[Rfam]
RNA sequence: GCGCCCCCUCGUGAUCGUCUUCUCACCCUUCACGCGGCGGGCGGAACAGAGGAACGGCCCCUGCGAUGACGGGAAUCGCGGGGGCCGUUC
Number, nucleotide and partner (000 for none) at each position: 001g042002c000003g000004c040005c039006c000007c037008c036009u000010c000011g033012u032013g031014a030015u000016c000017g027018u000019c000020u000021u000022c000023u000024c000025a000026c000027c017028c000029u000030u014031c013032a012033c011034g000035c000036g008037g007038c000039g005040g004041g000042c001043g000044g000045a000046a000047c000048a000049g000050a000051g000052g090053a089054a088055c087056g086057g085058c084059c083060c082061c081062u080063g079064c078065g077066a076067u075068g000069a000070c000071g000072g000073g000074a000075a067076u066077c065078g064079c063080g062081g061082g060083g059084g058085c057086c056087g055088u054089u053090c052

Rfam assigns this 90-nucleotide RNA from Streptomyces rubrolavendulae to the family "sodF sRNA". Gene Ontology terms of the family: regulation of mRNA stability, mRNA binding and negative regulation of translation. Rfam 15.1 lists 336 matches to the family in 317 species. It scores 71 bits against the family's covariance model. The pairing is the family consensus, mapped onto this sequence. The family's RNA type in Rfam is small RNA.